[Rfam]
RNA: Gut-1 RNA
Organism: Clostridium sp. DSM 8431
RNA sequence: CAGUGAAAUUCAAAGAUAAACUUUGAGUGAAAUUAUUCCUUUGGAAUAGUGAAAUUUGCAGGUGACAAGCACUGCAAGUGAAAUUAAUU
Numbered sequence: 001c002a003g004u005g006a007a008a009u010u011c012a013a014a015g016a017u018a019a020a021c022u023u024u025g026a027g028u029g030a031a032a033u034u035a036u037u038c039c040u041u042u043g044g045a046a047u048a049g050u051g052a053a054a055u056u057u058g059c060a061g062g063u064g065a066c067a068a069g070c071a072c073u074g075c076a077a078g079u080g081a082a083a084u085u086a087a088u089u
Stems, first nucleotide, its partner, number of pairs: 008028008032050006054079007